Source information
The record is a 66-nucleotide RNA sequence from Microtus ochrogaster, which matches "Small nucleolar RNA SNORD109A" in Rfam. On this family, see Runte et al., Hum Mol Genet 2001: "The IC-SNURF-SNRPN transcript serves as a host for multiple small nucleolar RNA species and as an antisense RNA for UBE3A". Its Rfam clan is "SNORD74 clan". Rfam's curators write: Humans have two copies of the SNORD109 gene, SNORD109A and SNORD109B. Pairs were carried over by alignment from the consensus structure, which was predicted with WAR. Rfam links the family to the GO terms RNA processing and nucleolus.

RNA sequence: GGAUCGAUGAUGAGAAACCCUGUCUGAGGAUGCUGAGAGACUCAUGUCAAUGGGAAUCUGAGGUCC
Number, nucleotide and partner (000 for none) at each position: 001g066002g065003a064004u063005c062006g000007a000008u000009g000010a000011u000012g000013a000014g000015a000016a000017a000018c000019c000020c000021u000022g000023u000024c000025u000026g000027a000028g000029g000030a000031u000032g000033c000034u000035g000036a000037g000038a000039g000040a000041c000042u000043c000044a000045u000046g000047u000048c000049a000050a000051u000052g000053g000054g000055a000056a000057u000058c000059u000060g000061a000062g005063g004064u003065c002066c001